[Rfam]
Background
This 47-nucleotide sequence from Acipenser ruthenus belongs to the Rfam family "Histone 3' UTR stem-loop". Taxonomically the source falls in Acipenser (Eukaryota, Teleostomi, Actinopteri, Acipenserinae). A search with the family's covariance model found it, with a score of 36 bits. The base pairs follow the family's consensus structure, which is taken from published work.
RNA sequence: CCAAAGGCUCUUUUCAGAGCCAACACAUCUUUCAAAAAGAGCAGAUU
Numbered sequence: 001c002c003a004a005a006g007g008c009u010c011u012u013u014u015c016a017g018a019g020c021c022a023a024c025a026c027a028u029c030u031u032u033c034a035a036a037a038a039g040a041g042c043a044g045a046u047u
Stems, first nucleotide, its partner, number of pairs: 006021006